The family of this 97-nucleotide sequence from Anisodus acutangulus is "Plastid-rps12 3UTR RNA". Rfam classes the family as a cis-regulatory element. Plastid rpl20 is a non-coding RNA (ncRNA) recognised in plastids. It was found in the three prime untranslated region (3UTR) of rps12 gene, its 3UTR location sugest a role in transcript maduration. Taxonomically the source falls in Anisodus (Eukaryota, Viridiplantae, Mesangiospermae, asterids).
RNA sequence: GAUUUCUGUUAGUGUAAAUUCAAUCACCUGAAUUUAAGAUGAUAAGAAAAUUUUCAUUGGUAACAAAUGGUUAUCCAUUCCGCGGAGAAAAACUUAU
Numbered sequence: 001g002a003u004u005u006c007u008g009u010u011a012g013u014g015u016a017a018a019u020u021c022a023a024u025c026a027c028c029u030g031a032a033u034u035u036a037a038g039a040u041g042a043u044a045a046g047a048a049a050a051u052u053u054u055c056a057u058u059g060g061u062a063a064c065a066a067a068u069g070g071u072u073a074u075c076c077a078u079u080c081c082g083c084g085g086a087g088a089a090a091a092a093c094u095u096a097u
Stems, first nucleotide, its partner, number of pairs: 009023002012020001052087004056078002059075006